Rfam assigns this 202-nucleotide sequence from Medicago truncatula to the family "MIR2670 microRNA precursor family". The match comes from Rfam's covariance-model search (182 bits). Pairs were carried over by alignment from the consensus structure, which was predicted with RNAalifold.
RNA sequence: UUUGACAUAAAUAGUGAGUAGCCGACUUGGGAGAAGUUAUCAACCUUUGGGAUAAAAUUAAAUUUGCUUCUUUUUACUCCAAUUUUUUUUUACCGUGGGUAAAAAGAAUCUUCUUGGGGUAUAAAAAGAACUAGAUUUAGAUUUAACCCAAGGGUUGAUGAUGUCCUUUCCCCCAAGAAGGCUGCUCACUAUUUAGCCCAAG
Number, nucleotide and partner (000 for none) at each position: 001u000002u000003u200004g199005a000006c000007a000008u195009a194010a193011a192012u191013a190014g189015u188016g187017a186018g185019u184020a183021g182022c181023c180024g000025a000026c177027u176028u175029g174030g173031g172032a000033g170034a169035a168036g167037u000038u000039a162040u161041c160042a159043a155044c154045c153046u000047u151048u150049g149050g148051g147052a000053u145054a144055a143056a142057a000058u140059u139060a138061a137062a136063u135064u134065u133066g132067c000068u130069u129070c128071u127072u126073u125074u124075u121076a120077c119078u118079c117080c116081a115082a114083u000084u000085u000086u106087u105088u104089u103090u102091u101092a100093c099094c098095g000096u000097g000098g094099g093100u092101a091102a090103a089104a088105a087106g086107a000108a000109u000110c000111u000112u000113c000114u082115u081116g080117g079118g078119g077120u076121a075122u000123a000124a074125a073126a072127a071128g070129a069130a068131c000132u066133a065134g064135a063136u062137u061138u060139a059140g058141a000142u056143u055144u054145a053146a000147c051148c050149c049150a048151a047152g000153g045154g044155u043156u000157g000158a000159u042160g041161a040162u039163g000164u000165c000166c000167u036168u035169u034170c033171c000172c031173c030174c029175a028176a027177g026178a000179a000180g023181g022182c021183u020184g019185c018186u017187c016188a015189c014190u013191a012192u011193u010194u009195a008196g000197c000198c000199c004200a003201a000202g000